[Rfam]
RNA sequence: CCUGUGUGUGGAUGGUAUUCAGCACCAAUGGCAGGAGUGUUUCCUGUGUGUGGAUGGUGUUCAGCACCAAGGACAGGAGUGUUUUUCC
Numbered sequence: 001c002c003u004g005u006g007u008g009u010g011g012a013u014g015g016u017a018u019u020c021a022g023c024a025c026c027a028a029u030g031g032c033a034g035g036a037g038u039g040u041u042u043c044c045u046g047u048g049u050g051u052g053g054a055u056g057g058u059g060u061u062c063a064g065c066a067c068c069a070a071g072g073a074c075a076g077g078a079g080u081g082u083u084u085u086u087c088c
Stems, first nucleotide, its partner, number of pairs: 001077005013069004018064002021061007031047006
A member of the RNA family "mir-2060 microRNA precursor family" from Branchiostoma belcheri, 88 nucleotides long. A search with the family's covariance model found it, with a score of 75 bits. The family has 7 seed sequences and 3,696 matches in Rfam 15.1.